A member of the RNA family "TPP riboswitch aptamer (THI element)" from Alkalibaculum sporogenes, 108 nucleotides long.
A search with the family's covariance model found it, with a score of 74 bits.

Nucleotides: 108
Base pairs, nucleotide, nucleotide: 006096007095008094009093010092011059012058013057014056016053017031018030019029020028021027039052040051041050042049064089065088066087067086070083071082072081073080
Number, partner (000 for none) and nucleotide at each position: 001000c002000c003000u004000u005000u006096a007095u008094a009093c010092u011059a012058g013057g014056g015000g016053g017031g018030c019029u020028g021027g022000c023000u024000u025000u026000a027021c028020c029019a030018g031017c032000u033000g034000a035000g036000a037000u038000u039052g040051a041050g042049a043000u044000a045000u046000a047000u048000g049042u050041c051040u052039u053016u054000g055000a056014c057013c058012c059011u060000u061000a062000a063000a064089c065088u066087u067086g068000a069000u070083c071082u072081g073080g074000a075000u076000c077000a078000u079000u080073c081072c082071a083070g084000c085000g086067u087066a088065a089064g090000g091000a092010a093009g094008u095007a096006u097000u098000u099000u100000u101000u102000c103000a104000a105000a106000c107000a108000c

Pairs were carried over by alignment from the consensus structure, which is taken from published work.